[Rfam]
RNA sequence: AACGUGCUCCGGGGUCGGUGAAAGUCCGAACCGGCGGUGACAGUCCGCGACCCGGCGGCCCAGCUCAUCCGAGCAGGGACGUCGGUUGAGCCGGUGGAAUUCCGGCACCGACAGUUAGAGUCUGGAUGGGAGAAGCACGUG
Numbered sequence: 001a002a003c004g005u006g007c008u009c010c011g012g013g014g015u016c017g018g019u020g021a022a023a024g025u026c027c028g029a030a031c032c033g034g035c036g037g038u039g040a041c042a043g044u045c046c047g048c049g050a051c052c053c054g055g056c057g058g059c060c061c062a063g064c065u066c067a068u069c070c071g072a073g074c075a076g077g078g079a080c081g082u083c084g085g086u087u088g089a090g091c092c093g094g095u096g097g098a099a100u101u102c103c104g105g106c107a108c109c110g111a112c113a114g115u116u117a118g119a120g121u122c123u124g125g126a127u128g129g130g131a132g133a134a135g136c137a138c139g140u141g
Stems, first nucleotide, its partner, number of pairs: 002140007009132001016028003030121002032110002034048004043108002052085006090106005112124003
Dot-bracket structure: .((((((((......(((.......))).[[((((((.....[[))))...((((((......................))))))....(((((.......)))))]])).(((.....]]))).......).))))))).
Background
Shown here is a 141-nucleotide sequence from Sinomonas sp. R1AF57, a member of the family "FMN riboswitch aptamer (RFN element)". About the family: The RFN element is a highly conserved domain that is found frequently in the 5'-untranslated regions of prokaryotic mRNAs that encode for flavin mononucleotide (FMN) biosynthesis and transport proteins. Lineage of the source: Bacteria > Bacillati > Actinomycetota > Micrococcales > Sinomonas.